Shown here is a 132-nucleotide sequence from Danio rerio, a member of the family "Small nucleolar RNA SNORA49".
Its family is annotated with RNA processing and nucleolus in the Gene Ontology.
Rfam describes the family as follows. The snoRNA ACA49 has no identified RNA target. NB genomic sequence 1-nt different from published.
It scores 37 bits against the family's covariance model.
[Rfam]
RNA sequence: UGCCCUCACCAACUCCUGGUCCCACUGAGGCUGUGUGGGUUUCUGGGCUCAUUUAAAAGGGCAGAUAAACAAGCUUUCUUCCCUCCCUCUUGGAUAAAGGUUCCAAACAGGGCCUUAAGUAAUGCUUACAUA
Numbered sequence: 001u002g003c004c005c006u007c008a009c010c011a012a013c014u015c016c017u018g019g020u021c022c023c024a025c026u027g028a029g030g031c032u033g034u035g036u037g038g039g040u041u042u043c044u045g046g047g048c049u050c051a052u053u054u055a056a057a058a059g060g061g062c063a064g065a066u067a068a069a070c071a072a073g074c075u076u077u078c079u080u081c082c083c084u085c086c087c088u089c090u091u092g093g094a095u096a097a098a099g100g101u102u103c104c105a106a107a108c109a110g111g112g113c114c115u116u117a118a119g120u121a122a123u124g125c126u127u128a129c130a131u132a
Stems, first nucleotide, its partner, number of pairs: 003061004015046002018043002021039005072126003076122002085112004090106004